[Rfam]
Ribosomal protein L20 leader: a 116-nucleotide sequence from Clostridium tetanomorphum.
RNA sequence: UCUGUUAAGAAGAAACUAGCCGUUUCUCACCUUACAGCAUUGCUAGUAAGGUUAGAUUGGGAAUAUACUUAUUGUAGUGUAUAUUGAGGACGGCUUUGCCGUCCUUUUUUUAUUGA
Numbered sequence: 001u002c003u004g005u006u007a008a009g010a011a012g013a014a015a016c017u018a019g020c021c022g023u024u025u026c027u028c029a030c031c032u033u034a035c036a037g038c039a040u041u042g043c044u045a046g047u048a049a050g051g052u053u054a055g056a057u058u059g060g061g062a063a064u065a066u067a068c069u070u071a072u073u074g075u076a077g078u079g080u081a082u083a084u085u086g087a088g089g090a091c092g093g094c095u096u097u098g099c100c101g102u103c104c105u106u107u108u109u110u111u112a113u114u115g116a
Base pairs, nucleotide, nucleotide: 011027012026013025014024015023016022029052030051031050034047035046037043038042089103090102091101092100093099094098
Gene Ontology term of the family: regulation of gene expression. The match comes from Rfam's covariance-model search (67 bits). This family is a putative r-protein leader autoregulatory structure found in B. subtilis and other low-GC Gram-positive bacteria.